[Rfam]
RNA: MIR5565 microRNA precursor family
Organism: Miscanthus lutarioriparius
RNA sequence: GCACUCAUAUCCACCUCAAUCCAUGUGUGUUGGAGUGGACUGGGGUGGAAAAUAGUUUAAGUUCCACCCCAAUCCACUCCAACACAUGUGGAUUGAGGUGAAUAAGAGU
Numbered sequence: 001g002c003a004c005u006c007a008u009a010u011c012c013a014c015c016u017c018a019a020u021c022c023a024u025g026u027g028u029g030u031u032g033g034a035g036u037g038g039a040c041u042g043g044g045g046u047g048g049a050a051a052a053u054a055g056u057u058u059a060a061g062u063u064c065c066a067c068c069c070c071a072a073u074c075c076a077c078u079c080c081a082a083c084a085c086a087u088g089u090g091g092a093u094u095g096a097g098g099u100g101a102a103u104a105a106g107a108g109u
Stems, first nucleotide, its partner, number of pairs: 004108003008104003012100003016096017035077005041071003045067003